[Rfam]
The family of this 100-nucleotide RNA sequence from Dickeya parazeae is "t44 RNA". NCBI's taxonomy places the organism under Bacteria, Pseudomonadati, Pseudomonadota, Enterobacterales, Dickeya parazeae. From the family's description: This family consists of a number of bacterial RNA genes of between 135 and 170 bases in length. A reference for the family is Tjaden et al. (2002), "Transcriptome analysis of Escherichia coli using high-density oligonucleotide probe arrays", Nucleic Acids Res.
RNA sequence: CUCACUAUGUGUAUAACACACACGUGUCGACACAUUCGCCGGGGUGCCUGUAAUGGUUUUUCCAUUCUGGUCGGUGUAAUGGGACACGUGGAGGCAUAAC
Numbered sequence: 001c002u003c004a005c006u007a008u009g010u011g012u013a014u015a016a017c018a019c020a021c022a023c024g025u026g027u028c029g030a031c032a033c034a035u036u037c038g039c040c041g042g043g044g045u046g047c048c049u050g051u052a053a054u055g056g057u058u059u060u061u062c063c064a065u066u067c068u069g070g071u072c073g074g075u076g077u078a079a080u081g082g083g084a085c086a087c088g089u090g091g092a093g094g095c096a097u098a099a100c
Stems, first nucleotide, its partner, number of pairs: 021090008033081004038075004046071003050067001